[Rfam]
RNA sequence: UUCCCGUAGUCGGAUUGAACGGAGUCCGGUGGCGAUAACCGGGCGGGAG
Dot-bracket structure: (((((((...((....[..)).{..(((((..]..}.))))))))))))
RNA: DUF2693-FD RNA